The record is a 212-nucleotide part of an RNA from Mycena chlorophos, which matches "Eukaryotic large subunit ribosomal RNA" in Rfam. The base pairs follow the family's consensus structure, which is taken from published work. NCBI's taxonomy places the organism under Eukaryota, Agaricomycotina, Marasmiineae, Mycenaceae, Mycena.
RNA sequence: AAGUCGGCAAAAUAGAUCCGUAACUUCGGGAAAAGGAUUGGCUCUAAGGGUUGGGUGUGUCGGGCCUUGGUAGAAAACUUCUGGACCUAGUCCUCACUAUUGGGGGGCAACCUCUGACGGAGGGGACCGGGACCGGCUUGUGGAUGACCUUGGCUGCCUCUCGGGGCGUCCGGCGCACGCUUAACAACCAACUUAGAACUGGUACGGACAAG
Dot-bracket structure: ..............(((((....(....).....)))))((.(((((((((((.((((((((((((..(((.....((..((((.(((.((((((.((.(((((((....))))))).)).)))))).))).))))...)).....)))..)))...............)))))))))......)))))..)))))).))(...).......
Numbered sequence: 001a002a003g004u005c006g007g008c009a010a011a012a013u014a015g016a017u018c019c020g021u022a023a024c025u026u027c028g029g030g031a032a033a034a035g036g037a038u039u040g041g042c043u044c045u046a047a048g049g050g051u052u053g054g055g056u057g058u059g060u061c062g063g064g065c066c067u068u069g070g071u072a073g074a075a076a077a078c079u080u081c082u083g084g085a086c087c088u089a090g091u092c093c094u095c096a097c098u099a100u101u102g103g104g105g106g107g108c109a110a111c112c113u114c115u116g117a118c119g120g121a122g123g124g125g126a127c128c129g130g131g132a133c134c135g136g137c138u139u140g141u142g143g144a145u146g147a148c149c150u151u152g153g154c155u156g157c158c159u160c161u162c163g164g165g166g167c168g169u170c171c172g173g174c175g176c177a178c179g180c181u182u183a184a185c186a187a188c189c190a191a192c193u194u195a196g197a198a199c200u201g202g203u204a205c206g207g208a209c210a211a212g
Stems, first nucleotide, its partner, number of pairs: 015039005024029001040200002043197006049189005055178009064154003069149003077141002081136004086131003090127006097120002100117007201205001